The family of this 304-nucleotide RNA sequence from Dinoponera quadriceps is "RNase MRP". It scores 53 bits against the family's covariance model. By type it is a ribozyme. The source organism's lineage runs through Eukaryota, Altocrustacea, Hexapoda, Eumetabola and Dinoponera.
RNA sequence: AAGUUCCCUCGAAUGACACCACGGGGCUAAAUCCGGAGUCCUUUAGUGACUCUUUCGCCGCUCUGAGGAAGGUCCCUGGAUCUGUGGCAGGAAGUGUCGUAGCGUAAGUACUAUCAGCCUUGUAACCGUUUCGCGAACUUAAGAGAGAGGAAGCUUCGGCUGAUCUUUUAUCGCGAUGUUGGUGCAAGAGUGUUGGUCAAAGCAAAGUAAUGUGUAACAACGCGUUUUUCUCUCCGCCUCCGUCGUUCUCGGAGGUGGAGGAAAGUUACGUUGAACUGAACAGGGCCUAUCGUACGAGGAAACU
Numbered sequence: 001a002a003g004u005u006c007c008c009u010c011g012a013a014u015g016a017c018a019c020c021a022c023g024g025g026g027c028u029a030a031a032u033c034c035g036g037a038g039u040c041c042u043u044u045a046g047u048g049a050c051u052c053u054u055u056c057g058c059c060g061c062u063c064u065g066a067g068g069a070a071g072g073u074c075c076c077u078g079g080a081u082c083u084g085u086g087g088c089a090g091g092a093a094g095u096g097u098c099g100u101a102g103c104g105u106a107a108g109u110a111c112u113a114u115c116a117g118c119c120u121u122g123u124a125a126c127c128g129u130u131u132c133g134c135g136a137a138c139u140u141a142a143g144a145g146a147g148a149g150g151a152a153g154c155u156u157c158g159g160c161u162g163a164u165c166u167u168u169u170a171u172c173g174c175g176a177u178g179u180u181g182g183u184g185c186a187a188g189a190g191u192g193u194u195g196g197u198c199a200a201a202g203c204a205a206a207g208u209a210a211u212g213u214g215u216a217a218c219a220a221c222g223c224g225u226u227u228u229u230c231u232c233u234c235c236g237c238c239u240c241c242g243u244c245g246u247u248c249u250c251g252g253a254g255g256u257g258g259a260g261g262a263a264a265g266u267u268a269c270g271u272u273g274a275a276c277u278g279a280a281c282a283g284g285g286c287c288u289a290u291c292g293u294a295c296g297a298g299g300a301a302a303c304u
Base pairs, nucleotide, nucleotide: 002304003303004302005301007299008298009297010296011295014217016215017214018213019212022065023064024063025062026061027060036052037051038050039049040048042046070288071287072286074285075284076283077282086098087097088096089095102109103108122183123182125180127178131176132175133174134173143167144166145165146164153160154159219272220271221270222269224267